A member of the RNA family "ctRNA" from Phyllobacterium endophyticum, 46 nucleotides long. A search with the family's covariance model found it, with a score of 55 bits. For this family Rfam cites "Two discrete elements are required for the replication of a repABC plasmid: an antisense RNA and a stem-loop structure" (Venkova-Canova et al., Mol Microbiol, 2004).
[Rfam]
RNA sequence: AGAGAGGCUUCCACGGUUUGAUCGUUUGGGGGCCUUUUUCUUUUGC
Numbered sequence: 001a002g003a004g005a006g007g008c009u010u011c012c013a014c015g016g017u018u019u020g021a022u023c024g025u026u027u028g029g030g031g032g033c034c035u036u037u038u039u040c041u042u043u044u045g046c
Base pairs, nucleotide, nucleotide: 005035006034007033008032009031010030011029012028015026016025017024
Rfam describes the family as follows. This family represents a group of ctRNAs (or counter-transcribed RNAs) from p42d and related plasmids. ctRNAs are small, highly structured, antisense sequences which are involved in negative regulation.